[Rfam]
RNA: c-di-AMP riboswitch aptamer (ydaO/yuaA leader)
RNA sequence: CCACCCCUUUGACCGAACACAACGGCAUAACGGGCAGGGACGGGGGACCCAAGAACCGCGGUCCGAUCACAUCAGUGACGGACCUUGGGGUGAAGCCGCCGACGCGCGGCCGGGCCAACCCUUCGAGGGCCCGAACCCGACAGCUCACCUCGCAGGCGUGCCGGAGGGAUCUC
Number, nucleotide and partner (000 for none) at each position: 001c155002c000003a000004c000005c039006c038007c037008u000009u000010u000011g000012a000013c000014c000015g000016a000017a000018c000019a000020c000021a000022a000023c000024g000025g000026c000027a000028u000029a000030a000031c000032g000033g000034g000035c000036a000037g007038g006039g005040a000041c152042g151043g150044g149045g148046g000047a000048c000049c000050c087051a086052a085053g084054a000055a000056c000057c000058g000059c000060g000061g000062u000063c000064c000065g000066a000067u000068c000069a000070c000071a000072u000073c000074a000075g000076u000077g000078a000079c000080g000081g000082a000083c000084c053085u052086u051087g050088g138089g137090g136091u000092g000093a000094a000095g000096c109097c108098g107099c106100c000101g000102a000103c000104g000105c000106g099107c098108g097109g096110c000111c000112g132113g131114g130115c129116c000117a000118a000119c000120c000121c000122u000123u000124c000125g000126a000127g000128g000129g115130c114131c113132c112133g000134a000135a000136c090137c089138c088139g000140a000141c000142a000143g000144c000145u000146c000147a000148c045149c044150u043151c042152g041153c000154a000155g001156g000157c000158g000159u000160g000161c000162c000163g000164g000165a000166g000167g000168g000169a000170u000171c000172u000173c000